[Rfam]
RNA sequence: ACCGCUCAAGGCAAACCCGUCGAAAGGCGGGGGCGCAAAGCUACGGGCCUAAGUCCCUUUUUUAGGGGAUAAGGCAGCCGGGCCGCCGGAG
Numbered sequence: 001a002c003c004g005c006u007c008a009a010g011g012c013a014a015a016c017c018c019g020u021c022g023a024a025a026g027g028c029g030g031g032g033g034c035g036c037a038a039a040g041c042u043a044c045g046g047g048c049c050u051a052a053g054u055c056c057c058u059u060u061u062u063u064a065g066g067g068g069a070u071a072a073g074g075c076a077g078c079c080g081g082g083c084c085g086c087c088g089g090a091g
Stems, first nucleotide, its partner, number of pairs: 003088002011036002016031006034077001040083003044080003047075003